[Rfam]
RNA: RtT RNA
RNA sequence: CUGAUGCCCACAGAGGGAGGGUGAGAACCCUCGCCGGGUUCGAGCAGAGCAGCUUGCUGCGAUGAACGGCCGCAGGCCGCCCCGAAGGGGUGAGCCACGCAGUGGCGAAUCAUCCCUCCCUCACCGCCA
Numbered sequence: 001c002u003g004a005u006g007c008c009c010a011c012a013g014a015g016g017g018a019g020g021g022u023g024a025g026a027a028c029c030c031u032c033g034c035c036g037g038g039u040u041c042g043a044g045c046a047g048a049g050c051a052g053c054u055u056g057c058u059g060c061g062a063u064g065a066a067c068g069g070c071c072g073c074a075g076g077c078c079g080c081c082c083c084g085a086a087g088g089g090g091u092g093a094g095c096c097a098c099g100c101a102g103u104g105g106c107g108a109a110u111c112a113u114c115c116c117u118c119c120c121u122c123a124c125c126g127c128c129a
Stems, first nucleotide, its partner, number of pairs: 015120007022112001032092004039086004046058002067079004